RNA sequence: CGGCUCUUCCUAUCAUUGGGACGCAGAAGUCUCAAAGUGUCGGAUUGUUCACCCGCCAAUAGGGAACGUGAGCUGGGUUUAGACCGUCGUGAGACAGGUUAGUU
Number, nucleotide and partner (000 for none) at each position: 001c076002g074003g073004c072005u071006c068007u065008u064009c063010c062011u061012a000013u000014c039015a038016u000017u034018g033019g032020g031021a030022c029023g000024c000025a000026g000027a000028a000029g022030u021031c020032u019033c018034a017035a000036a000037g000038u015039g014040u000041c055042g054043g053044a000045u051046u000047g000048u000049u000050c000051a045052c000053c043054c042055g041056c000057c000058a000059a000060u000061a011062g010063g009064g008065a007066a000067c000068g006069u000070g000071a005072g004073c003074u002075g000076g001077g000078u000079u000080u000081a000082g100083a099084c098085c097086g095087u094088c093089g000090u000091g000092a000093g088094a087095c086096a000097g085098g084099u083100u082101a000102g000103u000104u000

A member of the RNA family "Eukaryotic large subunit ribosomal RNA" from Sciurus carolinensis, 104 nucleotides of a longer RNA. Rfam links the family to the GO terms structural constituent of ribosome and ribosome. The source organism's lineage runs through Eukaryota, Bilateria, Eutheria, Euarchontoglires and Sciurus.